This 94-nucleotide RNA sequence from Chenopodium quinoa belongs to the Rfam family "Small nucleolar RNA R44/J54/Z268 family". Taxonomically the source falls in Chenopodium (Eukaryota, Euphyllophyta, Amaranthaceae, Chenopodioideae).

RNA sequence: GGUGCAGAUGAUGAUAAAACUAGACAGGGACAUCAGAAGCUCUUAGGAGUAUACUAUGUUGAUUUGUCUUAAAUGGGAAUCUCUUUGAUGCACU
Numbered sequence: 001g002g003u004g005c006a007g008a009u010g011a012u013g014a015u016a017a018a019a020c021u022a023g024a025c026a027g028g029g030a031c032a033u034c035a036g037a038a039g040c041u042c043u044u045a046g047g048a049g050u051a052u053a054c055u056a057u058g059u060u061g062a063u064u065u066g067u068c069u070u071a072a073a074u075g076g077g078a079a080u081c082u083c084u085u086u087g088a089u090g091c092a093c094u
Stems, first nucleotide, its partner, number of pairs: 002093005